[Rfam]
RNA: Archaeal small subunit ribosomal RNA, nucleotides 864 to 1440
Organism: Methanocaldococcus vulcanius
RNA sequence: UGGCGGGGGAGCACUACAACGGGUGGAGCCUGCGGUUUAAUUGGAUUCAACGCCGGGCAUCUCACCAGGGGCGACGGCAGGAUGAAGGCCAGGUUGACGACCUUGCCAGACGCGCCGAGAGGUGGUGCAUGGCCGUCGUCAGCUCGUACCGUGAGGCGUCCUGUUAAGUCAGGUAACGAGCGAGACCCGUGCCCCAUGUUGCAACCUCCUCCUCCGGGAGGAGGGCACUCAUGGGGGACCGCCGGCGCUAAGCCGGAGGAAGGUGCGGGCAACGACAGGUCCGCAUGCCCCGAAUCCCCUGGGCUACACGCGGGCUACAAUGGCCGGGACAAUGGGAAGCGACCCCGAAAGGGGGAGCGAAUCCCCUAAACCCGGUCGUAGUCCGGAUCGAGGGCUGUAACUCGCCCUCGUGAAGCCGGAAUCCGUAGUAAUCGCGCCUCACCAUGGCGCGGUGAAUGCGUCCCUGCUCCUUGCACACACCGCCCGUCACGCCACCCGAGUUGAGCCCAAGUGAGGCCCUGUCCGCAAGGGCAGGGUCGAACUUGGGUUCAGCAAGGGGGGCGAAGUCGUAACAAGG
Dot-bracket structure: (((((.(((((((..((..((((((.((((((((((....((((........))))........(((((((...((((.(......(((.(((.......))).)))...)..))))...((.((((..(((((((((...((((((.((....))...((((......))))..)))))).....((((.(((((((...(...(((((((....))))))).)....)))))))..((.(((((.....))))).)).....))))....)))).)))...))))))))....)))))))...)).)))))))).)...(((((((.....(((..((..((((....))))..))....))).....)))))))......(....(((((((........)))))))....).....))))).....((((((((.......))))))))......))...)))))))))).))..(.(..((.(.((((.(((..(((((((((((((..((((((((((....))))))))))..)))))))))))))..))).))))..).))...)..).